[Rfam]
RNA sequence: GAUGAGGCUAUUCCGACGGGGAGAAAAGUAGUGCGCCUUACUGCCUGCCUCAUCACCCCUAUUGUUAAGG
Dot-bracket structure: ((((((((..((((....)))).....((((....[.[.[))))..))))))))..........].].].

int-alpA RNA: a 70-nucleotide RNA from Xenorhabdus bovienii. Pairs were carried over by alignment from the consensus structure, which is taken from published work. About the family: Acidobacteria (1 example), Planctomycetes (1 example), Proteobacteria. By type it is a small RNA.